RNA sequence: UUAAACAAACCUUCUUAAAAUUUCUGAGAUUUGUUUAUUUUGCAUAUUCAGUAAAU
Numbered sequence: 001u002u003a004a005a006c007a008a009a010c011c012u013u014c015u016u017a018a019a020a021u022u023u024c025u026g027a028g029a030u031u032u033g034u035u036u037a038u039u040u041u042g043c044a045u046a047u048u049c050a051g052u053a054a055a056u
Stems, first nucleotide, its partner, number of pairs: 002037008011028001021055003024051003027047001
Rfam assigns this 56-nucleotide RNA from Hepatovirus ahepa to the family "HepA virus 3'-terminal pseudoknot".
On this family, see Livieratos et al., J Gen Virol 2004: "Analysis of the RNA of Potato yellow vein virus: evidence for a tripartite genome and conserved 3'-terminal structures among members of the genus Crinivirus".
Pairs were carried over by alignment from the consensus structure, which is taken from published work.
NCBI's taxonomy places the organism under Viruses, Orthornavirae, Pisuviricota, Hepatovirus, Hepatovirus A.